[Rfam]
RNA sequence: UUAUGCCUGGCUCCCUGUAUGCCACGAGUGGAUACCGAUUUUGGUUUUAAAAUCGGCUGCCGGUGGCGUACAAGGAGUCAAGCAUGA
Numbered sequence: 001u002u003a004u005g006c007c008u009g010g011c012u013c014c015c016u017g018u019a020u021g022c023c024a025c026g027a028g029u030g031g032a033u034a035c036c037g038a039u040u041u042u043g044g045u046u047u048u049a050a051a052a053u054c055g056g057c058u059g060c061c062g063g064u065g066g067c068g069u070a071c072a073a074g075g076a077g078u079c080a081a082g083c084a085u086g087a
Stems, first nucleotide, its partner, number of pairs: 001087006008080007016072009028060002